[Rfam]
RNA sequence: GAGCCUGAACAGAGAAGCAGGGUCUGAUCGUAGCCUCUGUGGCAGCUGUUGAUCAGCCCUUGCCUCUCUCUUUCUCUCCA
Numbered sequence: 001g002a003g004c005c006u007g008a009a010c011a012g013a014g015a016a017g018c019a020g021g022g023u024c025u026g027a028u029c030g031u032a033g034c035c036u037c038u039g040u041g042g043c044a045g046c047u048g049u050u051g052a053u054c055a056g057c058c059c060u061u062g063c064c065u066c067u068c069u070c071u072u073u074c075u076c077u078c079c080a
Stems, first nucleotide, its partner, number of pairs: 008072002011069005017063004022058001024056006031048004

Overview:
mir-574 microRNA precursor family: an 80-nucleotide sequence from Cnephaeus nilssonii. The family's consensus secondary structure was predicted with RNAalifold. For this family Rfam cites "Patterns of known and novel small RNAs in human cervical cancer" (Lui et al., Cancer Res, 2007). The source organism's lineage runs through Eukaryota, Bilateria, Theria, Boreoeutheria and Cnephaeus. Its Rfam clan is "mir-574 microRNA precursor clan".